[Rfam]
RNA: Small nucleolar RNA U61
RNA sequence: AGGCAAUGAAGAAACCCAAUCCGUGUGCCCUGGAGAUGGAUCGAAUCAUCGCUGACAGGUGACACAAACCCUCUAAGAAGUUCUGAGCCU
Numbered sequence: 001a002g003g004c005a006a007u008g009a010a011g012a013a014a015c016c017c018a019a020u021c022c023g024u025g026u027g028c029c030c031u032g033g034a035g036a037u038g039g040a041u042c043g044a045a046u047c048a049u050c051g052c053u054g055a056c057a058g059g060u061g062a063c064a065c066a067a068a069c070c071c072u073c074u075a076a077g078a079a080g081u082u083c084u085g086a087g088c089c090u
Base pairs, nucleotide, nucleotide: 001090002089003088004087